RNA: SR1 sRNA
Organism: Anoxybacillus sp. B7M1
RNA sequence: UAUUAAAUCAGUCAGUCAUUAAGUCAUCAUAAAGGAGUUGUAUGGAUGGGUACAAUCGUUUGUCAAACGUGCAAUUCGACAAUUGGACAUUUUGAAGAUGAAAAAGUAACAACACUUUAUGGAAAAUGUGCAGAAUGCACACAUGACAAAAUAGAUGACAACCAAUAAGUCACGGUCAAAAGAUGGGGGAAGGGUUUCAAAAUAAAGAAAACGCAUGCGAACGGGAGAAGCAUGCGUUUUUUUU
Numbered sequence: 001u002a003u004u005a006a007a008u009c010a011g012u013c014a015g016u017c018a019u020u021a022a023g024u025c026a027u028c029a030u031a032a033a034g035g036a037g038u039u040g041u042a043u044g045g046a047u048g049g050g051u052a053c054a055a056u057c058g059u060u061u062g063u064c065a066a067a068c069g070u071g072c073a074a075u076u077c078g079a080c081a082a083u084u085g086g087a088c089a090u091u092u093u094g095a096a097g098a099u100g101a102a103a104a105a106g107u108a109a110c111a112a113c114a115c116u117u118u119a120u121g122g123a124a125a126a127u128g129u130g131c132a133g134a135a136u137g138c139a140c141a142c143a144u145g146a147c148a149a150a151a152u153a154g155a156u157g158a159c160a161a162c163c164a165a166u167a168a169g170u171c172a173c174g175g176u177c178a179a180a181a182g183a184u185g186g187g188g189g190a191a192g193g194g195u196u197u198c199a200a201a202a203u204a205a206a207g208a209a210a211a212c213g214c215a216u217g218c219g220a221a222c223g224g225g226a227g228a229a230g231c232a233u234g235c236g237u238u239u240u241u242u243u244u
Stems, first nucleotide, its partner, number of pairs: 017106001019105002024101003030095001032093004037088003047082001049080001051078001054075001059074002206242013